The record is a 77-nucleotide sequence from Caenorhabditis briggsae, which matches "SmY spliceosomal RNA" in Rfam. The organism belongs to Caenorhabditis, within Eukaryota. For this family Rfam cites "A novel family of C. elegans snRNPs contains proteins associated with trans-splicing" (MacMorris et al., RNA, 2007). By type it is a spliceosomal small nuclear RNA. A search with the family's covariance model found it, with a score of 68 bits.

RNA sequence: CGUUCUAUUAAAACUAUUCAGGGCCUUCAUUAAGACCCGGUGUUCAAUUUUUGGAGCCUUGUCGCUUGCGGCAAGGG
Number, nucleotide and partner (000 for none) at each position: 001c000002g000003u000004u000005c000006u000007a000008u000009u000010a000011a000012a000013a000014c000015u000016a000017u000018u000019c000020a000021g038022g037023g036024c000025c034026u033027u032028c000029a000030u000031u000032a027033a026034g025035a000036c023037c022038c021039g000040g000041u000042g000043u000044u000045c000046a000047a000048u000049u000050u000051u000052u000053g000054g000055a000056g000057c076058c075059u074060u073061g072062u071063c070064g069065c000066u000067u000068g000069c064070g063071g062072c061073a060074a059075g058076g057077g000